Rfam assigns this 197-nucleotide RNA sequence from Peptostreptococcaceae bacterium oral taxon 113 to the family "Group II catalytic intron D1-D4-5". Taxonomically the source falls in Peptostreptococcaceae bacterium oral taxon 113 (Bacteria, Bacillati, Bacillota, Peptostreptococcaceae). It scores 150 bits against the family's covariance model. The literature on the family includes a 2001 paper in Trends Genet by Bonen and Vogel, "The ins and outs of group II introns". The family has 139 seed sequences and 720 matches in Rfam 15.1. About the family: Group II introns are found in rRNA, tRNA and mRNA of organelles in fungi, plants and protists, and also in mRNA in bacteria. Gene Ontology term of the family: Group II intron splicing.
RNA sequence: AUGAACUGAUAAUUCGAUAGGUGGAAUGAUGGGGUAACGCCCUGAAAUGCCUAGUCUUGAUGGACAUGCGUCGAUUGUAAAGGUCGGGGUGUGAAGCUCCAUGACAAAGGCUGAGAGUAGCCGUAAGGAACUGCAAUAGGUUCUACGAAAGUGUCCCAGAAGUGGGAUGUGCUACCUAUAAGCCGAGACUCUAUAAA
Numbered sequence: 001a002u003g004a005a006c007u008g009a010u011a012a013u014u015c016g017a018u019a020g021g022u023g024g025a026a027u028g029a030u031g032g033g034g035u036a037a038c039g040c041c042c043u044g045a046a047a048u049g050c051c052u053a054g055u056c057u058u059g060a061u062g063g064a065c066a067u068g069c070g071u072c073g074a075u076u077g078u079a080a081a082g083g084u085c086g087g088g089g090u091g092u093g094a095a096g097c098u099c100c101a102u103g104a105c106a107a108a109g110g111c112u113g114a115g116a117g118u119a120g121c122c123g124u125a126a127g128g129a130a131c132u133g134c135a136a137u138a139g140g141u142u143c144u145a146c147g148a149a150a151g152u153g154u155c156c157c158a159g160a161a162g163u164g165g166g167a168u169g170u171g172c173u174a175c176c177u178a179u180a181a182g183c184c185g186a187g188a189c190u191c192u193a194u195a196a197a
Stems, first nucleotide, its partner, number of pairs: 018053006031043004054189004061101004065093005071087006109184004117175005122147003128142002151170008